This 381-nucleotide sequence from Planomicrobium sp. YIM 101495 belongs to the Rfam family "Bacterial RNase P class B". Ribonuclease P (RNase P) is a ubiquitous endoribonuclease, found in archaea, bacteria and eukarya as well as chloroplasts and mitochondria. Its best characterised activity is the generation of mature 5'-ends of tRNAs by cleaving the 5'-leader elements of precursor-tRNAs. Cellular RNase Ps are ribonucleoproteins. The family is grouped with related families in Rfam's "RNaseP clan". A reference for the family is Frank and Pace (1998), "Ribonuclease P: unity and diversity in a tRNA processing ribozyme", Annu Rev Biochem. The family's RNA type in Rfam is ribozyme.
RNA sequence: GAAUUCUGGCAAUCGCUCCGGAAACCAGUCCGGAGAGGAAAGUCCAUGCUCGCACGGACCUGAGAUGGCCGUAGUGAUCGCGCUCAGUGAAACAAUAAACUGAGGCAGCUGCUUGCAGCUGACGGCGGGUGGAACGCCUAAGUCUUCGGAUAUGGCCGAAACACCCUGAAAAGUGCCACAGUGACGGAGCUGUGCAGGAAACUGUACAGGUGGAACGAGGUAAACCCCGUGAGCGAGAAACCCAAAUUAUGGUAGGGGCACUUUUCCAGAGGAAUUGAACCGAGGAAGAGGCAAGCUUAGUCUUGCAGAUAGAUGAUUGCUGUCCAAAAGUACGAGGCGCAAGCUGUUUGAGUACAUGGAAACAAAACAUGGCUUAUAGAU
Numbered sequence: 001g002a003a004u005u006c007u008g009g010c011a012a013u014c015g016c017u018c019c020g021g022a023a024a025c026c027a028g029u030c031c032g033g034a035g036a037g038g039a040a041a042g043u044c045c046a047u048g049c050u051c052g053c054a055c056g057g058a059c060c061u062g063a064g065a066u067g068g069c070c071g072u073a074g075u076g077a078u079c080g081c082g083c084u085c086a087g088u089g090a091a092a093c094a095a096u097a098a099a100c101u102g103a104g105g106c107a108g109c110u111g112c113u114u115g116c117a118g119c120u121g122a123c124g125g126c127g128g129g130u131g132g133a134a135c136g137c138c139u140a141a142g143u144c145u146u147c148g149g150a151u152a153u154g155g156c157c158g159a160a161a162c163a164c165c166c167u168g169a170a171a172a173g174u175g176c177c178a179c180a181g182u183g184a185c186g187g188a189g190c191u192g193u194g195c196a197g198g199a200a201a202c203u204g205u206a207c208a209g210g211u212g213g214a215a216c217g218a219g220g221u222a223a224a225c226c227c228c229g230u231g232a233g234c235g236a237g238a239a240a241c242c243c244a245a246a247u248u249a250u251g252g253u254a255g256g257g258g259c260a261c262u263u264u265u266c267c268a269g270a271g272g273a274a275u276u277g278a279a280c281c282g283a284g285g286a287a288g289a290g291g292c293a294a295g296c297u298u299a300g301u302c303u304u305g306c307a308g309a310u311a312g313a314u315g316a317u318u319g320c321u322g323u324c325c326a327a328a329a330g331u332a333c334g335a336g337g338c339g340c341a342a343g344c345u346g347u348u349u350g351a352g353u354a355c356a357u358g359g360a361a362a363c364a365a366a367a368c369a370u371g372g373c374u375u376a377u378a379g380a381u
Stems, first nucleotide, its partner, number of pairs: 005380002008321007016035006040375003044372005049237005054072004059068002078232005083104006105123001106121006124227002127166004136156003142151003173225002175221003190209008241257003261290007291306005323360004330355004